[Rfam]
RNA sequence: GUUCACACGACAACACAAUUUCACUGGUACCAAUCAUUCCAACAAAUUAUAACUCGGUCUCAGGGAUUGUAUAUUUUGUUGGAUUGAUUGGUAACAUGAAAUUUUGAAUUUUUGAAUUUUU
Numbered sequence: 001g002u003u004c005a006c007a008c009g010a011c012a013a014c015a016c017a018a019u020u021u022c023a024c025u026g027g028u029a030c031c032a033a034u035c036a037u038u039c040c041a042a043c044a045a046a047u048u049a050u051a052a053c054u055c056g057g058u059c060u061c062a063g064g065g066a067u068u069g070u071a072u073a074u075u076u077u078g079u080u081g082g083a084u085u086g087a088u089u090g091g092u093a094a095c096a097u098g099a100a101a102u103u104u105u106g107a108a109u110u111u112u113u114g115a116a117u118u119u120u121u
Stems, first nucleotide, its partner, number of pairs: 001117005009111002014106002017103007028093009038083009048073004054066002